[Rfam]
RNA sequence: AGUUCCUCGAUUCCCUGUCAUUCUCUAGUCCCGUCGUGUGUAGAGUUUACUGGACGGAGAACUGAUAGGGGCCUGUGGAGCA
Numbered sequence: 001a002g003u004u005c006c007u008c009g010a011u012u013c014c015c016u017g018u019c020a021u022u023c024u025c026u027a028g029u030c031c032c033g034u035c036g037u038g039u040g041u042a043g044a045g046u047u048u049a050c051u052g053g054a055c056g057g058a059g060a061a062c063u064g065a066u067a068g069g070g071g072c073c074u075g076u077g078g079a080g081c082a
Base pairs, nucleotide, nucleotide: 012071013070014069015068016067017066018065019064020063021061022060023059024058025057026056029053030052
Shown here is an 82-nucleotide sequence from Tropilaelaps mercedesae, a member of the family "mir-184 microRNA precursor family". It scores 60 bits against the family's covariance model. The source organism's lineage runs through Eukaryota, Ecdysozoa, Panarthropoda, Arthropoda and Tropilaelaps. The family's consensus secondary structure was predicted with PFOLD. For this family Rfam cites "The developmental miRNA profiles of zebrafish as determined by small RNA cloning" (Chen et al., Genes Dev, 2005).